[Rfam]
RNA sequence: AAUUCGGUUCGUAAGAACAAAGAGAAGCAGAUCUAUUACGAUACCCUAGAAGUACCAAUACGCAAUGGUA
Numbered sequence: 001a002a003u004u005c006g007g008u009u010c011g012u013a014a015g016a017a018c019a020a021a022g023a024g025a026a027g028c029a030g031a032u033c034u035a036u037u038a039c040g041a042u043a044c045c046c047u048a049g050a051a052g053u054a055c056c057a058a059u060a061c062g063c064a065a066u067g068g069u070a
Stems, first nucleotide, its partner, number of pairs: 003022002007018004045068002052061003